Overview:
The family of this 250-nucleotide part of an RNA from Collinsella tanakaei is "Bacterial large subunit ribosomal RNA".

RNA sequence: GGAGAAUCGAGGGAGGCUGCCCCUAGUACGAGAGGACCGGGGUGGACGGACCUCCGGUGAACCGGUUGUCGACCAACGGCAUGGCCGGGUAGCCGCGUCCGGCGCGGAUAACCGCUGAAGGCAUCUAAGCGGGAAGCCGUUCCCGAGAUCAGUUCUCCUUCUGGUAAGGGCCCAGGUAGAACACCUGGUCGAUAGGCCGCAGGUGCAAGGUCGGCGACGGCCUCAGCCGAGCGGCACUAAUCGCCCGAGC
Numbered sequence: 001g002g003a004g005a006a007u008c009g010a011g012g013g014a015g016g017c018u019g020c021c022c023c024u025a026g027u028a029c030g031a032g033a034g035g036a037c038c039g040g041g042g043u044g045g046a047c048g049g050a051c052c053u054c055c056g057g058u059g060a061a062c063c064g065g066u067u068g069u070c071g072a073c074c075a076a077c078g079g080c081a082u083g084g085c086c087g088g089g090u091a092g093c094c095g096c097g098u099c100c101g102g103c104g105c106g107g108a109u110a111a112c113c114g115c116u117g118a119a120g121g122c123a124u125c126u127a128a129g130c131g132g133g134a135a136g137c138c139g140u141u142c143c144c145g146a147g148a149u150c151a152g153u154u155c156u157c158c159u160u161c162u163g164g165u166a167a168g169g170g171c172c173c174a175g176g177u178a179g180a181a182c183a184c185c186u187g188g189u190c191g192a193u194a195g196g197c198c199g200c201a202g203g204u205g206c207a208a209g210g211u212c213g214g215c216g217a218c219g220g221c222c223u224c225a226g227c228c229g230a231g232c233g234g235c236a237c238u239a240a241u242c243g244c245c246c247g248a249g250c
Stems, first nucleotide, its partner, number of pairs: 001158007011144004017045007047101005055095003062088005067081005105139003112132005165248001168246004172188005193239003196235005202228002209222005
NCBI's taxonomy places the organism under Bacteria, Actinomycetota, Coriobacteriales, Collinsella, Collinsella tanakaei.